[Rfam]
RNA: SgrS RNA
RNA sequence: GAUGAAGCAGGGAGGUGUAUAUGAAGAGGUCUACCACAAAUCAGUUUUACCAACAGUACUUCGCCGCGACAAAGGGAGUGUCCUGGCUGGCCCGUCGGUGCGCAGAGCAGCGGUGGAAAAUACUGGCAGAUCUGAUGCAGUGGGAGGUGACAACGUCGACCUCUGACAGCUGAAAUGCUUCUAUCAUGUGUGACUGAGUAUUGGUGCGAAUCACCACGCCAGCAGGUAUUAUCUGCUGGCUUUUUUC
Numbered sequence: 001g002a003u004g005a006a007g008c009a010g011g012g013a014g015g016u017g018u019a020u021a022u023g024a025a026g027a028g029g030u031c032u033a034c035c036a037c038a039a040a041u042c043a044g045u046u047u048u049a050c051c052a053a054c055a056g057u058a059c060u061u062c063g064c065c066g067c068g069a070c071a072a073a074g075g076g077a078g079u080g081u082c083c084u085g086g087c088u089g090g091c092c093c094g095u096c097g098g099u100g101c102g103c104a105g106a107g108c109a110g111c112g113g114u115g116g117a118a119a120a121u122a123c124u125g126g127c128a129g130a131u132c133u134g135a136u137g138c139a140g141u142g143g144g145a146g147g148u149g150a151c152a153a154c155g156u157c158g159a160c161c162u163c164u165g166a167c168a169g170c171u172g173a174a175a176u177g178c179u180u181c182u183a184u185c186a187u188g189u190g191u192g193a194c195u196g197a198g199u200a201u202u203g204g205u206g207c208g209a210a211u212c213a214c215c216a217c218g219c220c221a222g223c224a225g226g227u228a229u230u231a232u233c234u235g236c237u238g239g240c241u242u243u244u245u246u247c
Base pairs, nucleotide, nucleotide: 001185002184003183004182007178008177009176034143035142036141040136041135042134043133044132046130047129048128050126051125052124067089068088070086071084074081095117096116098114099113101112102111103110162173163172218240219239220238221237222236223235224234225233